[Rfam]
RNA sequence: GGCGUAAAGGGCGUGUAGGCGGUUUGUACAGUCAGAUGUGAAAUCCCCGGGCUUAACCUGGGAGCUGCAUUUGAUACGUGCAGACUAGAGUGUGAGAGAGGGUUGUGGAAUUCCCAGUGUAGAGGUGAAAUUCGUAGAUAUUGGGAAGAACACCGGUGGCGAAGGCGGCAACCUGGCUCAUAACUGACGCUGAGGCGCGAAAGCGUGGGGAGCAAACAGGAUUAGAUACCCUGGUAGUCCACGCUGUAAACGAUGUGUGCCAGAUGUUGGGUAACUUAGUUAUUCAGUGUCGUAGUUAACGCGUUAAGCACACCGCCUGGGGAGUACGGCCGCAAGGUUGAAACUCAAAGGAAU
Numbered sequence: 001g002g003c004g005u006a007a008a009g010g011g012c013g014u015g016u017a018g019g020c021g022g023u024u025u026g027u028a029c030a031g032u033c034a035g036a037u038g039u040g041a042a043a044u045c046c047c048c049g050g051g052c053u054u055a056a057c058c059u060g061g062g063a064g065c066u067g068c069a070u071u072u073g074a075u076a077c078g079u080g081c082a083g084a085c086u087a088g089a090g091u092g093u094g095a096g097a098g099a100g101g102g103u104u105g106u107g108g109a110a111u112u113c114c115c116a117g118u119g120u121a122g123a124g125g126u127g128a129a130a131u132u133c134g135u136a137g138a139u140a141u142u143g144g145g146a147a148g149a150a151c152a153c154c155g156g157u158g159g160c161g162a163a164g165g166c167g168g169c170a171a172c173c174u175g176g177c178u179c180a181u182a183a184c185u186g187a188c189g190c191u192g193a194g195g196c197g198c199g200a201a202a203g204c205g206u207g208g209g210g211a212g213c214a215a216a217c218a219g220g221a222u223u224a225g226a227u228a229c230c231c232u233g234g235u236a237g238u239c240c241a242c243g244c245u246g247u248a249a250a251c252g253a254u255g256u257g258u259g260c261c262a263g264a265u266g267u268u269g270g271g272u273a274a275c276u277u278a279g280u281u282a283u284u285c286a287g288u289g290u291c292g293u294a295g296u297u298a299a300c301g302c303g304u305u306a307a308g309c310a311c312a313c314c315g316c317c318u319g320g321g322g323a324g325u326a327c328g329g330c331c332g333c334a335a336g337g338u339u340g341a342a343a344c345u346c347a348a349a350g351g352a353a354u
Stems, first nucleotide, its partner, number of pairs: 001317003009314001011198004016192001018191003022085007031077001032074009046062006089185003092181005100174007107151001111147008122133003159166002203244006212238002217233004255313006263291012295302002319346003328339004
Rfam assigns this 354-nucleotide part of an RNA from Acetobacter sp. DmW_043 to the family "Bacterial small subunit ribosomal RNA". Its family is annotated with ribosome and structural constituent of ribosome in the Gene Ontology. The base pairs follow the family's consensus structure, which is taken from published work.